[Rfam]
RNA: nhaA-I RNA
RNA sequence: GGGUGUCGCGGGGGUGGUCCCGCGACAGGAUCGUUUGGUUGGUCGGGCCGCCAGCC
Numbered sequence: 001g002g003g004u005g006u007c008g009c010g011g012g013g014g015u016g017g018u019c020c021c022g023c024g025a026c027a028g029g030a031u032c033g034u035u036u037g038g039u040u041g042g043u044c045g046g047g048c049c050g051c052c053a054g055c056c
Stems, first nucleotide, its partner, number of pairs: 005026008037056007